[Rfam]
RNA sequence: CCAAAUCUUAAGCUAAGAUUUGUGAAGAAAGAGAUCUUAUAUAAGAGCUUUUAGGUUUAUAUUUAAGCUUUUUCUUCACAAAUCUUACCUUAAGAUUUGG
Numbered sequence: 001c002c003a004a005a006u007c008u009u010a011a012g013c014u015a016a017g018a019u020u021u022g023u024g025a026a027g028a029a030a031g032a033g034a035u036c037u038u039a040u041a042u043a044a045g046a047g048c049u050u051u052u053a054g055g056u057u058u059a060u061a062u063u064u065a066a067g068c069u070u071u072u073u074c075u076u077c078a079c080a081a082a083u084c085u086u087a088c089c090u091u092a093a094g095a096u097u098u099g100g
Stems, first nucleotide, its partner, number of pairs: 001100009011091002014087020035066001039062007
The family of this 100-nucleotide RNA sequence from Arabidopsis lyrata is "MIR1888 microRNA precursor family". The family's consensus secondary structure was predicted with RNAalifold. The family has 2 seed sequences and 44 matches in Rfam 15.1. The match comes from Rfam's covariance-model search (90 bits).